[Rfam]
A member of the RNA family "Clostridiales-1 RNA" from Catenibacillus scindens, 163 nucleotides long. NCBI's taxonomy places the organism under Bacteria, Bacillota, Lachnospirales, Lachnospiraceae, Catenibacillus. Rfam classes the family as a small RNA.

RNA sequence: UGAGACAAGCGGCAAAAGGUCAUGCGGGCUGCGCUUGCACAGGCAAGCAUGACCUUGUGACGCGCAAAACACCGAAAAGCAGCCAUUUUUCGCAGAAAAAUGAGCGGAUUUGAGGUGUUUUUAGGAUUGCGGGAGUACGAAGUGCGGAGCAAUCCGUGUCUCA
Numbered sequence: 001u002g003a004g005a006c007a008a009g010c011g012g013c014a015a016a017a018g019g020u021c022a023u024g025c026g027g028g029c030u031g032c033g034c035u036u037g038c039a040c041a042g043g044c045a046a047g048c049a050u051g052a053c054c055u056u057g058u059g060a061c062g063c064g065c066a067a068a069a070c071a072c073c074g075a076a077a078a079g080c081a082g083c084c085a086u087u088u089u090u091c092g093c094a095g096a097a098a099a100a101u102g103a104g105c106g107g108a109u110u111u112g113a114g115g116u117g118u119u120u121u122u123a124g125g126a127u128u129g130c131g132g133g134a135g136u137a138c139g140a141a142g143u144g145c146g147g148a149g150c151a152a153u154c155c156g157u158g159u160c161u162c163a
Base pairs, nucleotide, nucleotide: 001163002162003161004160005159006158007157010062011061013059016056017055018054019053020052021051022050023049024048025047028044029042030041031040033038066121067120068119069118070117071116072115073114076111077110078109082105083104084102085101086100087099088098089097090096091095124155125154126153127152128151129150130149135145136144137143138142